[Rfam]
RNA sequence: GAGAACAAGAAGAAGCUCCCGCUUCUCGCCUAUGUUAACUAAGUACCUCUAGGCUAAUCGAUAUAAUCUGUUGAUUAAGAGCGGGAAAAAUUAUUUUUCCCGCUUUUUACUUGUCCU
Numbered sequence: 001g002a003g004a005a006c007a008a009g010a011a012g013a014a015g016c017u018c019c020c021g022c023u024u025c026u027c028g029c030c031u032a033u034g035u036u037a038a039c040u041a042a043g044u045a046c047c048u049c050u051a052g053g054c055u056a057a058u059c060g061a062u063a064u065a066a067u068c069u070g071u072u073g074a075u076u077a078a079g080a081g082c083g084g085g086a087a088a089a090a091u092u093a094u095u096u097u098u099c100c101c102g103c104u105u106u107u108u109a110c111u112u113g114u115c116c117u
Stems, first nucleotide, its partner, number of pairs: 011026006028054003034048001038044002080104010
Record summary
A member of the RNA family "Ribosomal protein L20 leader" from Amylolactobacillus amylophilus, 117 nucleotides long. Rfam describes the family as follows. This family is a putative r-protein leader autoregulatory structure found in B. subtilis and other low-GC Gram-positive bacteria. The family's RNA type in Rfam is cis-regulatory leader. Taxonomically the source falls in Amylolactobacillus amylophilus (Bacteria, Bacillota, Bacilli, Lactobacillales).